Nitrogen stress-induced RNA 1: a 54-nucleotide sequence from Okeania sp. KiyG1. The literature on the family includes a 2010 paper in J Mol Biol by Ionescu et al., "Heterocyst-specific transcription of NsiR1, a non-coding RNA encoded in a tandem array of direct repeats in cyanobacteria". The pairing is the family consensus, mapped onto this sequence. The family has 17 seed sequences and 962 matches in Rfam 15.1.
RNA sequence: UGGUAGAUGCACCCUGAUGGAUAACCUCCGCCUUCAUUGGUGGAGGUUUUUUUG
Numbered sequence: 001u002g003g004u005a006g007a008u009g010c011a012c013c014c015u016g017a018u019g020g021a022u023a024a025c026c027u028c029c030g031c032c033u034u035c036a037u038u039g040g041u042g043g044a045g046g047u048u049u050u051u052u053u054g
Stems, first nucleotide, its partner, number of pairs: 002013003025046008